Trypanosomatid snoRNA TB10Cs3H1: a 62-nucleotide sequence from Trypanosoma brucei. For this family Rfam cites "A genome-wide analysis of C/D and H/ACA-like small nucleolar RNAs in Trypanosoma brucei reveals a trypanosome-specific pattern of rRNA modification" (Liang et al., RNA, 2005). The sequence is in the family's curated seed alignment. Its family is annotated with nucleolus and RNA processing in the Gene Ontology. Pairs were carried over by alignment from the consensus structure, which was predicted with WAR.
[Rfam]
RNA sequence: AGCAGUGUCGCUAUGCGUUCCCGUCAGUAAUACGGGCUAACGGUACGAAGCACGUGCGAGAG
Numbered sequence: 001a002g003c004a005g006u007g008u009c010g011c012u013a014u015g016c017g018u019u020c021c022c023g024u025c026a027g028u029a030a031u032a033c034g035g036g037c038u039a040a041c042g043g044u045a046c047g048a049a050g051c052a053c054g055u056g057c058g059a060g061a062g
Stems, first nucleotide, its partner, number of pairs: 002057003005053003012045003016042004020036005
Dot-bracket structure: .((((((....(((.(((((((((.......)))))..))))))).....))).))).....